Rfam assigns this 82-nucleotide RNA to the family "nrdJ RNA". The family's RNA type in Rfam is small RNA.
RNA sequence: ACCUGCUCCGGAUGCCCCACGCGGCGUCCGAAGUACCAGACACACACUGUGCCCGGGGAAGUUCUCGGCACUUCAGGGCGUU
Numbered sequence: 001a002c003c004u005g006c007u008c009c010g011g012a013u014g015c016c017c018c019a020c021g022c023g024g025c026g027u028c029c030g031a032a033g034u035a036c037c038a039g040a041c042a043c044a045c046a047c048u049g050u051g052c053c054c055g056g057g058g059a060a061g062u063u064c065u066c067g068g069c070a071c072u073u074c075a076g077g078g079c080g081u082u
Stems, first nucleotide, its partner, number of pairs: 004035004009030008049071005055065002